Record summary: mir-3492 microRNA precursor family: a 78-nucleotide RNA from Schistosoma margrebowiei. Lineage of the source: Eukaryota > Eumetazoa > Spiralia > Rhabditophora > Schistosoma. Its family is annotated with miRNA-mediated post-transcriptional gene silencing and RISC complex in the Gene Ontology. The base pairs follow the family's consensus structure, which was predicted with RNAalifold. The match comes from Rfam's covariance-model search (56 bits). Rfam 15.1 lists 21,496 matches to the family in 13 species.
[Rfam]
RNA sequence: AGCCUUCUGAAUCCGUGCUGAGCUUUCGUCAAACACCAGCCAGUUAAAACUGAUGAGACUCCCAAUAUGAGUAAAGUG
Numbered sequence: 001a002g003c004c005u006u007c008u009g010a011a012u013c014c015g016u017g018c019u020g021a022g023c024u025u026u027c028g029u030c031a032a033a034c035a036c037c038a039g040c041c042a043g044u045u046a047a048a049a050c051u052g053a054u055g056a057g058a059c060u061c062c063c064a065a066u067a068u069g070a071g072u073a074a075a076g077u078g
Stems, first nucleotide, its partner, number of pairs: 002077002005074002008071001011068002016064002020061003024058007